[Rfam]
RNA sequence: CUGGCGGCCGCCUCUGGUUCGCUUGGUGCAGGUCGGGAAACGCCGCCGUCGAGACGAACGCCGGCUAGCUAGCUUCUUCAUGUCUCUGCGCGUGUCCCGCUUUGCACCAAUUGAAUCGGAGCCGGCAACGCGC
Numbered sequence: 001c002u003g004g005c006g007g008c009c010g011c012c013u014c015u016g017g018u019u020c021g022c023u024u025g026g027u028g029c030a031g032g033u034c035g036g037g038a039a040a041c042g043c044c045g046c047c048g049u050c051g052a053g054a055c056g057a058a059c060g061c062c063g064g065c066u067a068g069c070u071a072g073c074u075u076c077u078u079c080a081u082g083u084c085u086c087u088g089c090g091c092g093u094g095u096c097c098c099g100c101u102u103u104g105c106a107c108c109a110a111u112u113g114a115a116u117c118g119g120a121g122c123c124g125g126c127a128a129c130g131c132g133c
Base pairs, nucleotide, nucleotide: 013120014119017116018115019114020113023110024109025108026107027106028105029104030103031102032101034099035098036097037096038095040093041092042091043090
The record is a 133-nucleotide RNA sequence from Zizania palustris, which matches "MIR168 microRNA precursor family" in Rfam. Rfam links the family to the GO terms miRNA-mediated post-transcriptional gene silencing and RISC complex.